RNA sequence: AGUAAUGGUACGCGGGCUAAGACCGGUACGUCCUGUGCCAACGUCCACUUGACAAACAUCCUGUG
Numbered sequence: 001a002g003u004a005a006u007g008g009u010a011c012g013c014g015g016g017c018u019a020a021g022a023c024c025g026g027u028a029c030g031u032c033c034u035g036u037g038c039c040a041a042c043g044u045c046c047a048c049u050u051g052a053c054a055a056a057c058a059u060c061c062u063g064u065g
Stems, first nucleotide, its partner, number of pairs: 012048001014046004025039005056064002

Bacillaceae-1 RNA: a 65-nucleotide RNA from Lysinibacillus composti. The match comes from Rfam's covariance-model search (50 bits). Pairs were carried over by alignment from the consensus structure, which is taken from published work. NCBI's taxonomy places the organism under Bacteria, Bacillota, Bacilli, Caryophanales, Lysinibacillus. It is annotated as a small RNA.